[Rfam]
RNA: Small nucleolar RNA SNORA8
RNA sequence: CGCACUCAAUGGUAUCUGCACCCUUCAGAACUUCCUGAUGAGGUGUUCACAAACAUAGUGCUAUAUGAACUCAGGGUCCGGCAUCGUUGGUUAGCCUGCUAUCUCUGCUUGUUAACCUAGUAACUGCUGAUACAUGA
Numbered sequence: 001c002g003c004a005c006u007c008a009a010u011g012g013u014a015u016c017u018g019c020a021c022c023c024u025u026c027a028g029a030a031c032u033u034c035c036u037g038a039u040g041a042g043g044u045g046u047u048c049a050c051a052a053a054c055a056u057a058g059u060g061c062u063a064u065a066u067g068a069a070c071u072c073a074g075g076g077u078c079c080g081g082c083a084u085c086g087u088u089g090g091u092u093a094g095c096c097u098g099c100u101a102u103c104u105c106u107g108c109u110u111g112u113u114a115a116c117c118u119a120g121u122a123a124c125u126g127c128u129g130a131u132a133c134a135u136g137a
Stems, first nucleotide, its partner, number of pairs: 002061005015053001017051001018046005025038004064126002069121002073118002080109004